[Rfam]
RNA sequence: UUUGGUGCUCAUGAUGAUUUAAGACUUUUUUCCCCAUCAGAGCGGAAGUGUUGAAUUUUGCUGUUAGCCAGAAUUUGUCUGAUUGCACCAAU
Numbered sequence: 001u002u003u004g005g006u007g008c009u010c011a012u013g014a015u016g017a018u019u020u021a022a023g024a025c026u027u028u029u030u031u032c033c034c035c036a037u038c039a040g041a042g043c044g045g046a047a048g049u050g051u052u053g054a055a056u057u058u059u060g061c062u063g064u065u066a067g068c069c070a071g072a073a074u075u076u077g078u079c080u081g082a083u084u085g086c087a088c089c090a091a092u
Stems, first nucleotide, its partner, number of pairs: 002091007
Overview
A member of the RNA family "Small nucleolar SNORD12/SNORD106" from Thamnophis sirtalis, 92 nucleotides long. By type it is a C/D-box small nucleolar RNA. The family's consensus secondary structure was predicted with RNAalifold. The family has 8 seed sequences and 2,264 matches in Rfam 15.1. Lineage of the source: Eukaryota > Gnathostomata > Lepidosauria > Serpentes > Thamnophis. Its Rfam clan is "SNORD12 clan". The literature on the family includes a 2001 paper in EMBO J by Huttenhofer et al., "RNomics: an experimental approach that identifies 201 candidates for novel, small, non-messenger RNAs in mouse".